[Rfam]
RNA sequence: GGUUUUUACCCAGUAUCAUAAGGUACUAGGAAGUUCUGACCAGUUCUUCGGAGCUGUGUUAGAUUAAUCGAAUUUUUUGAAAAGCGCUCCUGGGGUUAUCCGGGAACGUAAA
Numbered sequence: 001g002g003u004u005u006u007u008a009c010c011c012a013g014u015a016u017c018a019u020a021a022g023g024u025a026c027u028a029g030g031a032a033g034u035u036c037u038g039a040c041c042a043g044u045u046c047u048u049c050g051g052a053g054c055u056g057u058g059u060u061a062g063a064u065u066a067a068u069c070g071a072a073u074u075u076u077u078u079g080a081a082a083a084g085c086g087c088u089c090c091u092g093g094g095g096u097u098a099u100c101c102g103g104g105a106a107c108g109u110a111a112a
Stems, first nucleotide, its partner, number of pairs: 008034001009030002013026005037061004041056005088108001091105001094101002